RNA: Cis-regulator of HTH transcription factor
Organism: Peptoniphilus sp. oral taxon 375
RNA sequence: CUUUUUUACGCAUAGUAGACCACCUCUAUACAUUUUACUGUUCCUAUUGAAUUAGAAACAGGUAUAGAAAAACAUGUUAUAUAGUUUAUAGGUUCAUAUUUAAUAAAAAGCACUACUAAACGCCAAUAAAAAAACCGUUAUAUGGUAGUGCUAUUUAUGCUGUUAAAAUAUUGUAUCUUACUUCCAAAUGGCGGUUUGUUGGAGGUCAAAGUCGCCAUGAAGUAUAUCACAUACAAU
Numbered sequence: 001c002u003u004u005u006u007u008a009c010g011c012a013u014a015g016u017a018g019a020c021c022a023c024c025u026c027u028a029u030a031c032a033u034u035u036u037a038c039u040g041u042u043c044c045u046a047u048u049g050a051a052u053u054a055g056a057a058a059c060a061g062g063u064a065u066a067g068a069a070a071a072a073c074a075u076g077u078u079a080u081a082u083a084g085u086u087u088a089u090a091g092g093u094u095c096a097u098a099u100u101u102a103a104u105a106a107a108a109a110g111c112a113c114u115a116c117u118a119a120a121c122g123c124c125a126a127u128a129a130a131a132a133a134a135c136c137g138u139u140a141u142a143u144g145g146u147a148g149u150g151c152u153a154u155u156u157a158u159g160c161u162g163u164u165a166a167a168a169u170a171u172u173g174u175a176u177c178u179u180a181c182u183u184c185c186a187a188a189u190g191g192c193g194g195u196u197u198g199u200u201g202g203a204g205g206u207c208a209a210a211g212u213c214g215c216c217a218u219g220a221a222g223u224a225u226a227u228c229a230c231a232u233a234c235a236a237u
Stems, first nucleotide, its partner, number of pairs: 002107003007102002014100004028077003033072004038067004043062003047058002078091001111150008120138003188218003192214006